[Rfam]
RNA: Drosophila rox2 ncRNA
Organism: Drosophila sechellia
Nucleotides: 071
Base pairs, nucleotide, nucleotide: 003069004068005067007065008064009063010062011061012060013059014058015057016056017055018054019053020052021051
Number, partner (000 for none) and nucleotide at each position: 001000a002000a003069a004068a005067g006000a007065c008064g009063u010062g011061u012060a013059a014058a015057a016056u017055g018054u019053u020052g021051c022000a023000a024000a025000u026000u027000g028000a029000g030000c031000a032000a033000a034000u035000a036000u037000a038000u039000a040000u041000g042000c043000a044000u045000a046000u047000a048000u049000g050000g051021g052020u053019a054018a055017u056016g057015u058014u059013u060012u061011a062010c063009g064008c065007g066000c067005c068004u069003u070000a071000a